[Rfam]
RNA sequence: AAUGAAUCUAGAAGAAGCAUUUUUGCACAAAGUACAAUACUGAAACCAAUGUGCAGAAGUGUUUUUGCUGCAUUUUUA
Numbered sequence: 001a002a003u004g005a006a007u008c009u010a011g012a013a014g015a016a017g018c019a020u021u022u023u024u025g026c027a028c029a030a031a032g033u034a035c036a037a038u039a040c041u042g043a044a045a046c047c048a049a050u051g052u053g054c055a056g057a058a059g060u061g062u063u064u065u066u067g068c069u070g071c072a073u074u075u076u077u078a
Base pairs, nucleotide, nucleotide: 002077004075005074006073007072009070010069011068013066014065015064016063018061019060020059021058022057023056024055025054026053027052028051029050033048
Source information:
This 78-nucleotide RNA sequence from Sarcophilus harrisii belongs to the Rfam family "mir-147 microRNA precursor family". It scores 65 bits against the family's covariance model. The source organism's lineage runs through Eukaryota, Opisthokonta, Metazoa, Amniota and Sarcophilus. Gene Ontology terms of the family: RISC complex and miRNA-mediated post-transcriptional gene silencing. The literature on the family includes a 2008 paper in BMC Genomics by Kawaji et al., "Hidden layers of human small RNAs".